Histone 3' UTR stem-loop: a 47-nucleotide sequence from Pachyramphus minor. The family's consensus secondary structure is taken from published work. Taxonomically the source falls in Pachyramphus (Eukaryota, Opisthokonta, Teleostomi, Neognathae). On this family, see Williams and Marzluff, Nucleic Acids Res 1995: "The sequence of the stem and flanking sequences at the 3' end of histone mRNA are critical determinants for the binding of the stem-loop binding protein". The match comes from Rfam's covariance-model search (35 bits).
RNA sequence: CCAAAGGCUCUUUUAAGAGCCCCUACGUACACAAUAAAAAGGGCUGU
Numbered sequence: 001c002c003a004a005a006g007g008c009u010c011u012u013u014u015a016a017g018a019g020c021c022c023c024u025a026c027g028u029a030c031a032c033a034a035u036a037a038a039a040a041g042g043g044c045u046g047u
Stems, first nucleotide, its partner, number of pairs: 006021006